[Rfam]
RNA sequence: UACGUCUCGGGAUGCGUGCCAGGAGUGCGUUUGCAAAGCACGCGACGAGUUUGCUUUACAGCAACGUUGACACUGUAAAUGCACUAUCUGGUACGACACCCCGGGAUGU
Numbered sequence: 001u002a003c004g005u006c007u008c009g010g011g012a013u014g015c016g017u018g019c020c021a022g023g024a025g026u027g028c029g030u031u032u033g034c035a036a037a038g039c040a041c042g043c044g045a046c047g048a049g050u051u052u053g054c055u056u057u058a059c060a061g062c063a064a065c066g067u068u069g070a071c072a073c074u075g076u077a078a079a080u081g082c083a084c085u086a087u088c089u090g091g092u093a094c095g096a097c098a099c100c101c102c103g104g105g106a107u108g109u
Stems, first nucleotide, its partner, number of pairs: 008103004015095009025084001027082009
Shown here is a 109-nucleotide RNA from Bicyclus anynana, a member of the family "mir-277 microRNA precursor family". A search with the family's covariance model found it, with a score of 76 bits. The literature on the family includes a 2010 paper in BMC Genomics by Liu et al., "MicroRNAs of Bombyx mori identified by Solexa sequencing". The organism belongs to Bicyclus, within Eukaryota.